This 287-nucleotide sequence from Scleropages formosus belongs to the Rfam family "Metazoan signal recognition particle RNA". Rfam's curators write: The signal recognition particle (SRP) is a universally conserved ribonucleoprotein. It is involved in the co-translational targeting of proteins to membranes. The eukaryotic SRP consists of a 300-nucleotide 7S RNA and six proteins: SRPs 72, 68, 54, 19, 14, and 9. Archaeal SRP consists of a 7S RNA and homologues of the eukaryotic SRP19 and SRP54 proteins. The family has 91 seed sequences and 383,523 matches in Rfam 15.1. By type it is a non-coding RNA gene. The literature on the family includes a 2003 paper in Nucleic Acids Res by Rosenblad et al., "SRPDB: Signal Recognition Particle Database". Pairs were carried over by alignment from the consensus structure, which is taken from published work. The source organism's lineage runs through Eukaryota, Opisthokonta, Actinopterygii, Osteoglossidae and Scleropages.
RNA sequence: GUUGGAUGUGGCGACAUGCGUCUGUAAUCCUUGCGUCCGGGAGACCGAGGCUGCUAGACUGCUUGAGUCAGGGAUUCUGGUACUGCGGCGCGCUGUAGCAAACGGGAGUCCUGGUGACGGUCCGCAUCGACAUGGUGCUCCGUGGGGAGCCUUGGCGCACCAGGUCACCUAAGGAGUGGUGAAACAACCCAGGCCAGCGAAAGCCUCCAUGCUGAGUGAUCUCUGGGUUGCCCCUGUAAGCAGUGGCUGCGGUGCUGCCGAGACGAGACGGCAGGGCGCAGCCUUUU
Numbered sequence: 001g002u003u004g005g006a007u008g009u010g011g012c013g014a015c016a017u018g019c020g021u022c023u024g025u026a027a028u029c030c031u032u033g034c035g036u037c038c039g040g041g042a043g044a045c046c047g048a049g050g051c052u053g054c055u056a057g058a059c060u061g062c063u064u065g066a067g068u069c070a071g072g073g074a075u076u077c078u079g080g081u082a083c084u085g086c087g088g089c090g091c092g093c094u095g096u097a098g099c100a101a102a103c104g105g106g107a108g109u110c111c112u113g114g115u116g117a118c119g120g121u122c123c124g125c126a127u128c129g130a131c132a133u134g135g136u137g138c139u140c141c142g143u144g145g146g147g148a149g150c151c152u153u154g155g156c157g158c159a160c161c162a163g164g165u166c167a168c169c170u171a172a173g174g175a176g177u178g179g180u181g182a183a184a185c186a187a188c189c190c191a192g193g194c195c196a197g198c199g200a201a202a203g204c205c206u207c208c209a210u211g212c213u214g215a216g217u218g219a220u221c222u223c224u225g226g227g228u229u230g231c232c233c234c235u236g237u238a239a240g241c242a243g244u245g246g247c248u249g250c251g252g253u254g255c256u257g258c259c260g261a262g263a264c265g266a267g268a269c270g271g272c273a274g275g276g277c278g279c280a281g282c283c284u285u286u287u
Base pairs, nucleotide, nucleotide: 001045002044003043004023005022006021007020008019009018010017028042029041030040047285048284049283050282051281052280053279054278059274060273061272062271063270067264068263069262072259073258078257079256080255081254082253083252084251085250086249087248088247089246092244093243094242095241096240102237103236104235105234106233108231109230110226111225113224114223116221117220118218119217121215122214124212125211126210127209129166130165131164133162134161135160136159137158138157140155141154142153144151145150168174169173176207178205179204180203188197